Overview
The record is a 133-nucleotide RNA from Phytohabitans houttuyneae, which matches "c-di-AMP riboswitch aptamer (ydaO/yuaA leader)" in Rfam. Its family is annotated with cyclic-di-AMP binding and regulation of gene expression in the Gene Ontology.
RNA sequence: CGGCUCAGCCCGCCGAGUCGAGAAAGAAACGAGCCGGGGACCCAAGCACUUCGGGGUGAAUCCGCGAAAGCGGUAGGGCGCGCUCUCCCGCCCGAACCCGUCAGCUAACCCGGUAGGCGGCCAGGGAGAAGGA
Number, nucleotide and partner (000 for none) at each position: 001c000002g000003g000004c000005u000006c000007a000008g000009c000010c000011c119012g118013c117014c116015g000016a000017g000018u032019c031020g030021a000022g000023a000024a000025a000026g000027a000028a000029a000030c020031g019032a018033g114034c113035c112036g111037g110038g109039g000040a000041c000042c000043c053044a000045a000046g000047c000048a000049c000050u000051u000052c000053g043054g099055g098056g097057u000058g000059a000060a000061u000062c073063c072064g071065c070066g000067a000068a000069a000070g065071c064072g063073g062074u000075a000076g093077g092078g091079c090080g000081c000082g000083c000084u000085c000086u000087c000088c000089c000090g079091c078092c077093c076094g000095a000096a000097c056098c055099c054100g000101u000102c000103a000104g000105c000106u000107a000108a000109c038110c037111c036112g035113g034114u033115a000116g014117g013118c012119g011120g000121c000122c000123a000124g000125g000126g000127a000128g000129a000130a000131g000132g000133a000
Description:
The pairing is the family consensus, mapped onto this sequence.